The family of this 101-nucleotide RNA from Rhodococcus jostii is "mraW RNA". The sequence is in the family's curated seed alignment. Pairs were carried over by alignment from the consensus structure, which is taken from published work. The source organism's lineage runs through Bacteria, Actinomycetota, Nocardiaceae, Rhodococcus and Rhodococcus jostii.

RNA sequence: CCCGCGAAUGCCGCGAGGCCUCUGUCCGACGGAACCCUGACGCACUUCCCCAGCGCCAGGUUUUCAUUUCGGGCAGGGACCUCGAAGCAUUCGCCACGGCA
Numbered sequence: 001c002c003c004g005c006g007a008a009u010g011c012c013g014c015g016a017g018g019c020c021u022c023u024g025u026c027c028g029a030c031g032g033a034a035c036c037c038u039g040a041c042g043c044a045c046u047u048c049c050c051c052a053g054c055g056c057c058a059g060g061u062u063u064u065c066a067u068u069u070c071g072g073g074c075a076g077g078g079a080c081c082u083c084g085a086a087g088c089a090u091u092c093g094c095c096a097c098g099g100c101a
Stems, first nucleotide, its partner, number of pairs: 010088002014084005020078010031065004036060004041055003